[Rfam]
RNA sequence: UAGUGAUAAAGGCAAACUUACUGAAAGGUAAGGACGCAAAGCUGUGGGUCUAAGGGAACAAUGCAUUCCUAUGAUUGUCAGGCUGCCAAA
Numbered sequence: 001u002a003g004u005g006a007u008a009a010a011g012g013c014a015a016a017c018u019u020a021c022u023g024a025a026a027g028g029u030a031a032g033g034a035c036g037c038a039a040a041g042c043u044g045u046g047g048g049u050c051u052a053a054g055g056g057a058a059c060a061a062u063g064c065a066u067u068c069c070u071a072u073g074a075u076u077g078u079c080a081g082g083c084u085g086c087c088a089a090a
Stems, first nucleotide, its partner, number of pairs: 012037002017032006040084004045080003048075003055069004